RNA: U12 minor spliceosomal RNA
Organism: Trichobilharzia regenti
RNA sequence: AUGCCUUAAACUAAUGAGUAAGGAAAAUAGCAGAUCGGUUUGAUUACCGGUCCCUAGCUAAGUUCUAGACCAUUUUUUGCGGGGUACAGGCUGUCCUGCUGUGUCCCCUACUUCAGGGAUGUAGCGGCGUUAGCGGCCUACCCU
Numbered sequence: 001a002u003g004c005c006u007u008a009a010a011c012u013a014a015u016g017a018g019u020a021a022g023g024a025a026a027a028u029a030g031c032a033g034a035u036c037g038g039u040u041u042g043a044u045u046a047c048c049g050g051u052c053c054c055u056a057g058c059u060a061a062g063u064u065c066u067a068g069a070c071c072a073u074u075u076u077u078u079g080c081g082g083g084g085u086a087c088a089g090g091c092u093g094u095c096c097u098g099c100u101g102u103g104u105c106c107c108c109u110a111c112u113u114c115a116g117g118g119a120u121g122u123a124g125c126g127g128c129g130u131u132a133g134c135g136g137c138c139u140a141c142c143c144u
Stems, first nucleotide, its partner, number of pairs: 004023005033052007054068004081144005088139007097126005103120005